[Rfam]
A member of the RNA family "Singlet oxygen resistance RNA X" from Roseobacter ponti, 83 nucleotides long. On this family, see Peng et al., RNA Biol 2016: "Regulation of a polyamine transporter by the conserved 3' UTR-derived sRNA SorX confers resistance to singlet oxygen and organic hydroperoxides in Rhodobacter sphaeroides". The match comes from Rfam's covariance-model search (57 bits).
Nucleotides: 083
Base pairs, nucleotide, nucleotide: 008039009038010037011036012035013034057077058076059075060074061073062072063071064070
Number, partner (000 for none) and nucleotide at each position: 001000c002000a003000c004000c005000a006000a007000u008039u009038g010037a011036a012035g013034a014000u015000g016000g017000c018000a019000g020000a021000g022000u023000u024000a025000g026000c027000g028000c029000u030000c031000u032000g033000c034013u035012c036011u037010u038009c039008a040000a041000c042000c043000u044000c045000c046000c047000u048000g049000u050000u051000g052000g053000a054000c055000u056000u057077g058076g059075c060074c061073g062072g063071g064070c065000c066000g067000c068000g069000u070064g071063c072062c073061c074060g075059g076058c077057c078000c079000u080000u081000u082000u083000u